RNA sequence: UACUUAUACCGGCCAAAACCUGAUCCAGGUGCGGGGGACAAUAAAAUAAGUACAUAUCCCAAGCAACGAUUCGCGGAAUGUACUAGGGGUGAACCGCAGCGACGCGCAGAGCCGAUCUCCCGGCUCGAACCCGACAGCUAACCUCGCCGGCCAAGUUCAGGAGGAAAU
Numbered sequence: 001u002a003c004u005u006a007u008a009c010c011g012g013c014c015a016a017a018a019c020c021u022g023a024u025c026c027a028g029g030u031g032c033g034g035g036g037g038a039c040a041a042u043a044a045a046a047u048a049a050g051u052a053c054a055u056a057u058c059c060c061a062a063g064c065a066a067c068g069a070u071u072c073g074c075g076g077a078a079u080g081u082a083c084u085a086g087g088g089g090u091g092a093a094c095c096g097c098a099g100c101g102a103c104g105c106g107c108a109g110a111g112c113c114g115a116u117c118u119c120c121c122g123g124c125u126c127g128a129a130c131c132c133g134a135c136a137g138c139u140a141a142c143c144u145c146g147c148c149g150g151c152c153a154a155g156u157u158c159a160g161g162a163g164g165a166a167a168u
Stems, first nucleotide, its partner, number of pairs: 011152004018030003031147006042085001087132003095106003109126004
Shown here is a 168-nucleotide RNA from Cohnella terricola, a member of the family "c-di-AMP riboswitch aptamer (ydaO/yuaA leader)". The pairing is the family consensus, mapped onto this sequence. About the family: This family represents a conserved RNA structure found upstream of the ydaO and yuaA genes in Bacillus subtilis and related genes in other bacteria.